Shown here is a 95-nucleotide RNA sequence from Esox lucius, a member of the family "Small nucleolar RNA U83B".
Its family is annotated with RNA processing and nucleolus in the Gene Ontology.
Rfam's curators write: U83B belongs to the C/D family of snoRNAs. U83B like U83A has no documented RNA target and they share the same host gene with the C/D box snoRNA U43 (RPL3). N.B. U83A/B/C have no sequence similarity with the U83 snoRNA that was cloned by Jady and Kiss (2000).
It is annotated as a C/D-box small nucleolar RNA.
NCBI's taxonomy places the organism under Eukaryota, Vertebrata, Neopterygii, Esocidae, Esox.
On this family, see Jady and Kiss, Nucleic Acids Res 2000: "Characterisation of the U83 and U84 small nucleolar RNAs: two novel 2'-O-ribose methylation guide RNAs that lack complementarities to ribosomal RNAs".

RNA sequence: GUGUGUCGGUGACGAGACCACGGAACACCGCGCCAGGCAUGGCGCCCGACACCCAAUGAGGAUAUAUUCCAGCUGCCUUCCUUCUGAGACCACAC
Numbered sequence: 001g002u003g004u005g006u007c008g009g010u011g012a013c014g015a016g017a018c019c020a021c022g023g024a025a026c027a028c029c030g031c032g033c034c035a036g037g038c039a040u041g042g043c044g045c046c047c048g049a050c051a052c053c054c055a056a057u058g059a060g061g062a063u064a065u066a067u068u069c070c071a072g073c074u075g076c077c078u079u080c081c082u083u084c085u086g087a088g089a090c091c092a093c094a095c
Stems, first nucleotide, its partner, number of pairs: 001095005